Record summary
This 88-nucleotide RNA from Hydrogenibacillus schlegelii belongs to the Rfam family "c-di-GMP-I riboswitch aptamer". A search with the family's covariance model found it, with a score of 74 bits. On this family, see Weinberg et al., Nucleic Acids Res 2007: "Identification of 22 candidate structured RNAs in bacteria using the CMfinder comparative genomics pipeline".

[Rfam]
RNA sequence: CGACGACAAAGGCACACCAUCCGAAAGGAUGGGCCGCAAAGCCGUGAGCCUACGGCGGCGCGUCCGCUAUGGCUGUCUGGCUGCCGAA
Numbered sequence: 001c002g003a004c005g006a007c008a009a010a011g012g013c014a015c016a017c018c019a020u021c022c023g024a025a026a027g028g029a030u031g032g033g034c035c036g037c038a039a040a041g042c043c044g045u046g047a048g049c050c051u052a053c054g055g056c057g058g059c060g061c062g063u064c065c066g067c068u069a070u071g072g073c074u075g076u077c078u079g080g081c082u083g084c085c086g087a088a
Stems, first nucleotide, its partner, number of pairs: 012037002017032006040082004046077002048073003055067004